Rfam assigns this 100-nucleotide sequence from Pseudidiomarina indica to the family "Tryptophan operon leader".
The source organism's lineage runs through Bacteria, Pseudomonadati, Pseudomonadota, Alteromonadales and Pseudidiomarina.
About the family: At least 6 amino acid operons are known to be regulated by attenuation. In each a leader sequence of 150-200 bp is found upstream of the first gene in the operon. This leader sequence can assume two different secondary structures known as the terminator and the anti-terminator structure. In each case the leader also codes for very short peptide sequence that is rich in the end product amino acid of the operon.
[Rfam]
RNA sequence: AGCAACUGGUGGUGGCAUUUCCCGAACUAGCGGGCGAUGCAUCUGUGCGUAUUUAACAGAAAUAUUGCAAAAACCCGCUUCGAUAAGCGGGUUUUUUUGU
Numbered sequence: 001a002g003c004a005a006c007u008g009g010u011g012g013u014g015g016c017a018u019u020u021c022c023c024g025a026a027c028u029a030g031c032g033g034g035c036g037a038u039g040c041a042u043c044u045g046u047g048c049g050u051a052u053u054u055a056a057c058a059g060a061a062a063u064a065u066u067g068c069a070a071a072a073a074c075c076c077g078c079u080u081c082g083a084u085a086a087g088c089g090g091g092u093u094u095u096u097u098u099g100u
Stems, first nucleotide, its partner, number of pairs: 009046004015040005021034004072093007079085001